RNA sequence: GCCGAGUUGGAUAGCUCCAACUGGUAACUCAAGCGAGGGCAUCAAGGUGGUGGAACAUGGUUCAUGCUUCAUUGGUCUGGGCCUGAAUCUGCAAAUGUAGGUCUGUCCGCUCCAAGUUGGGAGUUGAUCAACGAGGCCUGAGCGAAAGCCCAAUUCUCUUUGGUCCUAGACUGAAGGGCACUGCGUGAGGCUGGCUUCACAGAGCAGCGACUACUCUUGGCUUUCAACAGUGGAGGGAUCACAAGCCACUGUACUUCUAGUCCAAACUGACCAGAUCGCGUGAUAAUGGAUUCAACAGUG
Numbered sequence: 001g002c003c004g005a006g007u008u009g010g011a012u013a014g015c016u017c018c019a020a021c022u023g024g025u026a027a028c029u030c031a032a033g034c035g036a037g038g039g040c041a042u043c044a045a046g047g048u049g050g051u052g053g054a055a056c057a058u059g060g061u062u063c064a065u066g067c068u069u070c071a072u073u074g075g076u077c078u079g080g081g082c083c084u085g086a087a088u089c090u091g092c093a094a095a096u097g098u099a100g101g102u103c104u105g106u107c108c109g110c111u112c113c114a115a116g117u118u119g120g121g122a123g124u125u126g127a128u129c130a131a132c133g134a135g136g137c138c139u140g141a142g143c144g145a146a147a148g149c150c151c152a153a154u155u156c157u158c159u160u161u162g163g164u165c166c167u168a169g170a171c172u173g174a175a176g177g178g179c180a181c182u183g184c185g186u187g188a189g190g191c192u193g194g195c196u197u198c199a200c201a202g203a204g205c206a207g208c209g210a211c212u213a214c215u216c217u218u219g220g221c222u223u224u225c226a227a228c229a230g231u232g233g234a235g236g237g238a239u240c241a242c243a244a245g246c247c248a249c250u251g252u253a254c255u256u257c258u259a260g261u262c263c264a265a266a267c268u269g270a271c272c273a274g275a276u277c278g279c280g281u282g283a284u285a286a287u288g289g290a291u292u293c294a295a296c297a298g299u300g
Stems, first nucleotide, its partner, number of pairs: 001040003005022007028037003046299001048297002051294003056289001059287001062283005068278001072274006079263004085257003090253002094250001100247003104243003107237002110235005116228009126165006133158004139152002142149002172219003176215002184209003191202003
RNA: Plant signal recognition particle RNA
Organism: Lathyrus oleraceus